The family of this 101-nucleotide RNA from Brugia malayi is "mir-72 microRNA precursor family". The family's consensus secondary structure was predicted with RNAalifold.
RNA sequence: ACAAGGCAAGAUGUUGGCAUAGCUGAACAUGAUAACGAUUAGGCUCUAGUUUAGAGCCUAAUCAAUUUGCAUAGAGCUUCAGCAGUGCCACAUUAGGCCAU
Numbered sequence: 001a002c003a004a005g006g007c008a009a010g011a012u013g014u015u016g017g018c019a020u021a022g023c024u025g026a027a028c029a030u031g032a033u034a035a036c037g038a039u040u041a042g043g044c045u046c047u048a049g050u051u052u053a054g055a056g057c058c059u060a061a062u063c064a065a066u067u068u069g070c071a072u073a074g075a076g077c078u079u080c081a082g083c084a085g086u087g088c089c090a091c092a093u094u095a096g097g098c099c100a101u
Stems, first nucleotide, its partner, number of pairs: 005099003011093004016089003022083005